Description: The family of this 113-nucleotide sequence is "drum RNA".
[Rfam]
RNA sequence: AAGUGAUGAAGCCUUGAGGUUGGUCAGGCAACGGCAGGGUGGAGCUUAUAUUUUAUGGUUUCAUAAAAUCCAAAACCUGGAUAGGCUUUCUGCUGAAAAGAAAAUUAUGAUUA
Numbered sequence: 001a002a003g004u005g006a007u008g009a010a011g012c013c014u015u016g017a018g019g020u021u022g023g024u025c026a027g028g029c030a031a032c033g034g035c036a037g038g039g040u041g042g043a044g045c046u047u048a049u050a051u052u053u054u055a056u057g058g059u060u061u062c063a064u065a066a067a068a069u070c071c072a073a074a075a076c077c078u079g080g081a082u083a084g085g086c087u088u089u090c091u092g093c094u095g096a097a098a099a100g101a102a103a104a105u106u107a108u109g110a111u112u113a
Stems, first nucleotide, its partner, number of pairs: 001047004011040006019032004024080004063108003084094003

Background
Pairs were carried over by alignment from the consensus structure, which is taken from published work. About the family: Firmicutes, Bacteroidetes (1 example), Proteobacteria (2 examples), Spirochaetes (2 examples).